[Rfam]
RNA sequence: GGAAGGAGGUGGAGAAGUGAUGUCUGCACUUGUCGAAUACAAGUGAGAUUCACUUCCUCCAACUUAUUUUC
Numbered sequence: 001g002g003a004a005g006g007a008g009g010u011g012g013a014g015a016a017g018u019g020a021u022g023u024c025u026g027c028a029c030u031u032g033u034c035g036a037a038u039a040c041a042a043g044u045g046a047g048a049u050u051c052a053c054u055u056c057c058u059c060c061a062a063c064u065u066a067u068u069u070u071c
Stems, first nucleotide, its partner, number of pairs: 007065003010061005017055001023048002027045005
The family of this 71-nucleotide sequence from Trichonephila clavata is "mir-1175 microRNA precursor family". Gene Ontology terms of the family: RISC complex and miRNA-mediated post-transcriptional gene silencing. The family's consensus secondary structure was predicted with RNAalifold.